[Rfam]
Background: Fluoride riboswitch aptamer (crcB RNA motif): a 65-nucleotide RNA from Sphaerochaeta pleomorpha. The family's consensus secondary structure is taken from published work. A search with the family's covariance model found it, with a score of 44 bits.
RNA sequence: AUAGUCACUGGUGGUGGAGUUCGCCGUUAACCGCUGUUGUCACAGCCAAUGACUCCUGUAUAAGA
Numbered sequence: 001a002u003a004g005u006c007a008c009u010g011g012u013g014g015u016g017g018a019g020u021u022c023g024c025c026g027u028u029a030a031c032c033g034c035u036g037u038u039g040u041c042a043c044a045g046c047c048a049a050u051g052a053c054u055c056c057u058g059u060a061u062a063a064g065a
Stems, first nucleotide, its partner, number of pairs: 010025004016056006033046004